[Rfam]
RNA sequence: AUAGAGAAACGGCAAAAUAAUCGAAAGGUUAUGACGCAAAGUCGUAGGUCUAAGGUCUUUUUUGACUAGGAUAGCUAGGCUGCCUCU
Numbered sequence: 001a002u003a004g005a006g007a008a009a010c011g012g013c014a015a016a017a018u019a020a021u022c023g024a025a026a027g028g029u030u031a032u033g034a035c036g037c038a039a040a041g042u043c044g045u046a047g048g049u050c051u052a053a054g055g056u057c058u059u060u061u062u063u064g065a066c067u068a069g070g071a072u073a074g075c076u077a078g079g080c081u082g083c084c085u086c087u
Base pairs, nucleotide, nucleotide: 012037013036017032018031019030020029021028022027040081041080042079043078045077046076047075048072049071050070055066056065057064
RNA: c-di-GMP-I riboswitch aptamer